[Rfam]
RNA sequence: UUUCUAGCAUAAGUAUGUCCCAUGCGUUAUUUGGGACGUACUUAUGCUAAGA
Numbered sequence: 001u002u003u004c005u006a007g008c009a010u011a012a013g014u015a016u017g018u019c020c021c022a023u024g025c026g027u028u029a030u031u032u033g034g035g036a037c038g039u040a041c042u043u044a045u046g047c048u049a050a051g052a
Stems, first nucleotide, its partner, number of pairs: 006048007014040003018036004022031001
The record is a 52-nucleotide RNA sequence from Rhinolophus ferrumequinum, which matches "mir-1302 microRNA precursor family" in Rfam. The family's consensus secondary structure was predicted with WAR. The literature on the family includes a 2008 paper in Genome Res by Morin et al., "Application of massively parallel sequencing to microRNA profiling and discovery in human embryonic stem cells". Gene Ontology terms of the family: RISC complex and miRNA-mediated post-transcriptional gene silencing.